The family of this 62-nucleotide RNA sequence from Microcebus murinus is "U7 small nuclear RNA". It scores 54 bits against the family's covariance model. NCBI's taxonomy places the organism under Eukaryota, Eumetazoa, Primates, Cheirogaleidae, Microcebus. The family has 49 seed sequences and 10,439 matches in Rfam 15.1.
RNA sequence: UAGUGUUACACUUGUUUUAGAAUUUGUCUAGCAGGUUUUCCAGUCUUCACUGGAAGAUCCCU
Number, nucleotide and partner (000 for none) at each position: 001u000002a000003g000004u000005g000006u000007u000008a000009c000010a000011c000012u000013u000014g000015u000016u000017u000018u000019a000020g000021a000022a000023u000024u000025u000026g000027u000028c000029u000030a000031g000032c000033a000034g059035g058036u057037u056038u055039u054040c053041c052042a051043g050044u049045c000046u000047u000048c000049a044050c043051u042052g041053g040054a039055a038056g037057a036058u035059c034060c000061c000062u000